A member of the RNA family "Mammalian CPEB3 ribozyme" from Alligator sinensis, 77 nucleotides long. A reference for the family is Salehi-Ashtiani et al. (2006), "A genomewide search for ribozymes reveals an HDV-like sequence in the human CPEB3 gene", Science. Rfam links the family to the GO term RNA nuclease activity.
RNA sequence: GGUUGUGAGUUUGAGGCCGUAGCAGAAGCACUCAUGGCGCAGCCCUGUCAGAUUCCUGCAAAUCUCUGAAUUCUGCU
Numbered sequence: 001g002g003u004u005g006u007g008a009g010u011u012u013g014a015g016g017c018c019g020u021a022g023c024a025g026a027a028g029c030a031c032u033c034a035u036g037g038c039g040c041a042g043c044c045c046u047g048u049c050a051g052a053u054u055c056c057u058g059c060a061a062a063u064c065u066c067u068g069a070a071u072u073c074u075g076c077u
Stems, first nucleotide, its partner, number of pairs: 013045001015044003021077007028040002050065005